[Rfam]
RNA sequence: AUCGUUCAUCCUAAAAGGACGGAAGUAAGCAUCAGCUGAAGGAACGCACC
Numbered sequence: 001a002u003c004g005u006u007c008a009u010c011c012u013a014a015a016a017g018g019a020c021g022g023a024a025g026u027a028a029g030c031a032u033c034a035g036c037u038g039a040a041g042g043a044a045c046g047c048a049c050c
Stems, first nucleotide, its partner, number of pairs: 003046005009019004022047001028037003
Shown here is a 50-nucleotide sequence, a member of the family "Glutamine riboswitch aptamer (glnA leader)". The base pairs follow the family's consensus structure, which is taken from published work. On this family, see Ames and Breaker, RNA Biol 2011: "Bacterial aptamers that selectively bind glutamine".